[Rfam]
A member of the RNA family "tRNA" from bacterium G20, 89 nucleotides long. The family is grouped with related families in Rfam's "tRNA clan". Gene Ontology term of the family: triplet codon-amino acid adaptor activity. The match comes from Rfam's covariance-model search (55 bits). The family's RNA type in Rfam is transfer RNA.

RNA sequence: GGAGAGGUCGCAUAGUCCGGUCUAGUGCGCUGCACUCGAAAUGCAGUAUUCGCGUAAGCGAAUCGAGAGUUCGAAUCUCUCCCUCUCCG
Numbered sequence: 001g002g003a004g005a006g007g008u009c010g011c012a013u014a015g016u017c018c019g020g021u022c023u024a025g026u027g028c029g030c031u032g033c034a035c036u037c038g039a040a041a042u043g044c045a046g047u048a049u050u051c052g053c054g055u056a057a058g059c060g061a062a063u064c065g066a067g068a069g070u071u072c073g074a075a076u077c078u079c080u081c082c083c084u085c086u087c088c089g
Stems, first nucleotide, its partner, number of pairs: 001088007010028004030046005065081005